[Rfam]
RNA sequence: AUCGACCUUGGCGAUGGACCCCGCCUGAGUUUCAGACUCGAACCGCAUUGUGCUGAUGGCUCCUGCUAUUCG
Number, nucleotide and partner (000 for none) at each position: 001a000002u000003c000004g000005a000006c000007c000008u000009u000010g025011g024012c023013g022014a000015u000016g063017g062018a061019c000020c059021c058022c013023g012024c011025c010026u000027g000028a000029g000030u000031u000032u000033c000034a000035g000036a000037c000038u000039c000040g000041a000042a000043c000044c000045g053046c052047a000048u000049u000050g000051u000052g046053c045054u000055g000056a000057u000058g021059g020060c000061u018062c017063c016064u000065g000066c000067u000068a000069u000070u000071c000072g000
RNA: Fluoride riboswitch aptamer (crcB RNA motif)
Organism: Aeromicrobium sp. Root472D3